[Rfam]
RNA: DUF3800-IX RNA
Organism: Rhodospirillum centenum
RNA sequence: CCCCCGCAGUCCGAACCGCCGCCGUAUGGUGUGCGUGUCCGUCAGGUCGGACUAGGCUGCGGGGGUGCG
Numbered sequence: 001c002c003c004c005c006g007c008a009g010u011c012c013g014a015a016c017c018g019c020c021g022c023c024g025u026a027u028g029g030u031g032u033g034c035g036u037g038u039c040c041g042u043c044a045g046g047u048c049g050g051a052c053u054a055g056g057c058u059g060c061g062g063g064g065g066u067g068c069g
Base pairs, nucleotide, nucleotide: 001065002064003063004062005061006060008058011056012055017035018034019033020031021030022029023028037052038051039050040049041048